[Rfam]
RNA: Small nucleolar RNA Z161/Z228
Organism: Macleaya cordata
RNA sequence: AGACCAGGUGAUGAAAAUUGAUUUUAAUCUCAUGAUGGUCAUCAGAGACUUUGUGUUGAUGUUGAUUUAAUCUUUCUGAUGGUU
Dot-bracket structure: ((.(..........................................(((.....))).......................).))
Numbered sequence: 001a002g003a004c005c006a007g008g009u010g011a012u013g014a015a016a017a018u019u020g021a022u023u024u025u026a027a028u029c030u031c032a033u034g035a036u037g038g039u040c041a042u043c044a045g046a047g048a049c050u051u052u053g054u055g056u057u058g059a060u061g062u063u064g065a066u067u068u069a070a071u072c073u074u075u076c077u078g079a080u081g082g083u084u
Stems, first nucleotide, its partner, number of pairs: 001084002004081001047057003